RNA sequence: UUUUAGCCCAGAUGGAAACGGAAAUCCUUUUGCGGGAAAAUUGUAUUUUUUAUUGCCUAAAAAGAGCGACCAAAGGAAGCUCCUUUUUGGGCUUAUAAAAAAACAAUUUUACAAAAAAGAUUGUAGUGUACAGCUGGAUUGGCU
Numbered sequence: 001u002u003u004u005a006g007c008c009c010a011g012a013u014g015g016a017a018a019c020g021g022a023a024a025u026c027c028u029u030u031u032g033c034g035g036g037a038a039a040a041u042u043g044u045a046u047u048u049u050u051u052a053u054u055g056c057c058u059a060a061a062a063a064g065a066g067c068g069a070c071c072a073a074a075g076g077a078a079g080c081u082c083c084u085u086u087u088u089g090g091g092c093u094u095a096u097a098a099a100a101a102a103a104c105a106a107u108u109u110u111a112c113a114a115a116a117a118a119g120a121u122u123g124u125a126g127u128g129u130a131c132a133g134c135u136g137g138a139u140u141g142g143c144u
Stems, first nucleotide, its partner, number of pairs: 009136003013132002018127002023122004028117004038109007